The record is a 287-nucleotide RNA sequence from Tetrabaena socialis, which matches "Plant signal recognition particle RNA" in Rfam.
Rfam 15.1 lists 4,988 matches to the family in 266 species.
Rfam classes the family as a non-coding RNA gene.
[Rfam]
RNA sequence: GCCGGGGGGCGUUGCGACCUCCUGUAACCCGAGUGGGGGCUGAGGGCCGGAAGUACCAUAUGAUUCUGCCGGUCUAGUUCGCCUGUGUCGAUGGCGUGUCCUCUCUGAGCCCACAGUCGGCAACGAUGCUUCCCUGACGGGGGUCAUCGUGGCUGAUGAUUAGCCCGGUACUGCGUGAGGCAGGAAACUGAGCAGCGAAAACGGGCAGCUGCGGGCGGCAGAAGGAUCGCAUGCCUGAGUGGACGGCUAGGCCACCCGGCAGGUCCUCUGAGGGGCAACUAGCUUUU
Numbered sequence: 001g002c003c004g005g006g007g008g009g010c011g012u013u014g015c016g017a018c019c020u021c022c023u024g025u026a027a028c029c030c031g032a033g034u035g036g037g038g039g040c041u042g043a044g045g046g047c048c049g050g051a052a053g054u055a056c057c058a059u060a061u062g063a064u065u066c067u068g069c070c071g072g073u074c075u076a077g078u079u080c081g082c083c084u085g086u087g088u089c090g091a092u093g094g095c096g097u098g099u100c101c102u103c104u105c106u107g108a109g110c111c112c113a114c115a116g117u118c119g120g121c122a123a124c125g126a127u128g129c130u131u132c133c134c135u136g137a138c139g140g141g142g143g144u145c146a147u148c149g150u151g152g153c154u155g156a157u158g159a160u161u162a163g164c165c166c167g168g169u170a171c172u173g174c175g176u177g178a179g180g181c182a183g184g185a186a187a188c189u190g191a192g193c194a195g196c197g198a199a200a201a202c203g204g205g206c207a208g209c210u211g212c213g214g215g216c217g218g219c220a221g222a223a224g225g226a227u228c229g230c231a232u233g234c235c236u237g238a239g240u241g242g243a244c245g246g247c248u249a250g251g252c253c254a255c256c257c258g259g260c261a262g263g264u265c266c267u268c269u270g271a272g273g274g275g276c277a278a279c280u281a282g283c284u285u286u287u
Stems, first nucleotide, its partner, number of pairs: 001040003004023006028037003042287006049280002053276002056272001058269001060267001062265002065263006071253008080245001082242002086238001093235007100225002104222004109216004114211004118155004123150006132143004156161001163206005172199001174197003181190003

Notes: The family is grouped with related families in Rfam's "SRP clan". Rfam links the family to the GO terms SRP-dependent cotranslational protein targeting to membrane, signal sequence recognition and signal recognition particle, endoplasmic reticulum targeting. The match comes from Rfam's covariance-model search (152 bits).